[Rfam]
RNA sequence: UCACUCGGUGAUGAGGAGUUUGUUGCGUAUGUACUCACUGGCCUUGAUGAAGAGAUCUAUAAUUCUUUUGUAUCCUCAAUUGUUACUCGGGUAGAGCCAAUCUCGCCCGCUGAGUUGUAUUCACAGAUGAUGGCUUUUGAGC
Numbered sequence: 001u002c003a004c005u006c007g008g009u010g011a012u013g014a015g016g017a018g019u020u021u022g023u024u025g026c027g028u029a030u031g032u033a034c035u036c037a038c039u040g041g042c043c044u045u046g047a048u049g050a051a052g053a054g055a056u057c058u059a060u061a062a063u064u065c066u067u068u069u070g071u072a073u074c075c076u077c078a079a080u081u082g083u084u085a086c087u088c089g090g091g092u093a094g095a096g097c098c099a100a101u102c103u104c105g106c107c108c109g110c111u112g113a114g115u116u117g118u119a120u121u122c123a124c125a126g127a128u129g130a131u132g133g134c135u136u137u138u139g140a141g142c
Stems, first nucleotide, its partner, number of pairs: 004141005091111001094108001096106001